Rfam assigns this 93-nucleotide RNA sequence from Paenibacillus sp. Leaf72 to the family "ylbH leader". The match comes from Rfam's covariance-model search (68 bits). For this family Rfam cites "New RNA motifs suggest an expanded scope for riboswitches in bacterial genetic control" (Barrick et al., Proc Natl Acad Sci U S A, 2004). Rfam classes the family as a cis-regulatory leader. From the family's description: This family is a putative regulatory RNA structure that is found upstream of the ylbH gene in B. subtilis and related low GC Gram-positive bacteria.
RNA sequence: CAAAAAAAUAGAGCGCCCCUUUCGGGGCGCUCUAUUCAUGGGAGAGGAGAAACCGGACGAAGAGCUUAUGGGGAACGUAAGUCUUCUCCGCGG
Numbered sequence: 001c002a003a004a005a006a007a008a009u010a011g012a013g014c015g016c017c018c019c020u021u022u023c024g025g026g027g028c029g030c031u032c033u034a035u036u037c038a039u040g041g042g043a044g045a046g047g048a049g050a051a052a053c054c055g056g057a058c059g060a061a062g063a064g065c066u067u068a069u070g071g072g073g074a075a076c077g078u079a080a081g082u083c084u085u086c087u088c089c090g091c092g093g
Stems, first nucleotide, its partner, number of pairs: 011032009035042002054090004059086004064082005